[Rfam]
Source information: Manganese Mn2+ riboswitch aptamer (yybP-ykoY): a 208-nucleotide sequence from Pseudoduganella lurida. For this family Rfam cites "New RNA motifs suggest an expanded scope for riboswitches in bacterial genetic control" (Barrick et al., Proc Natl Acad Sci U S A, 2004). This RNA was originally discovered in E. coli during a large scale screen and was named SraF. The family was later found to exist upstream of related families of protein genes in many bacteria, including the the yybP and ykoK genes in B. subtilis. The base pairs follow the family's consensus structure.
RNA sequence: CGACCGUUCUUUGGGGAGUAGCCUCCUGUGCUGCGCCGGCAUCGUCGGCAUGGACAGAACCUGCAUCAACAUGAUCGGCCCGCAGGCCGUGGUGCAGGUGGCCGCAAGCAUCGUCUUGCCGGCCUGGCGAGACCAAUGAUCCACGGGCGGCCCAUUACUUGCACCAGGGGCCGGAGCUGCGCGUGGAUCUUUGGUGAAUUUCCGGCCC
Numbered sequence: 001c002g003a004c005c006g007u008u009c010u011u012u013g014g015g016g017a018g019u020a021g022c023c024u025c026c027u028g029u030g031c032u033g034c035g036c037c038g039g040c041a042u043c044g045u046c047g048g049c050a051u052g053g054a055c056a057g058a059a060c061c062u063g064c065a066u067c068a069a070c071a072u073g074a075u076c077g078g079c080c081c082g083c084a085g086g087c088c089g090u091g092g093u094g095c096a097g098g099u100g101g102c103c104g105c106a107a108g109c110a111u112c113g114u115c116u117u118g119c120c121g122g123c124c125u126g127g128c129g130a131g132a133c134c135a136a137u138g139a140u141c142c143a144c145g146g147g148c149g150g151c152c153c154a155u156u157a158c159u160u161g162c163a164c165c166a167g168g169g170g171c172c173g174g175a176g177c178u179g180c181g182c183g184u185g186g187a188u189c190u191u192u193g194g195u196g197a198a199u200u201u202c203c204g205g206c207c208c
Stems, first nucleotide, its partner, number of pairs: 026057003059099010076089005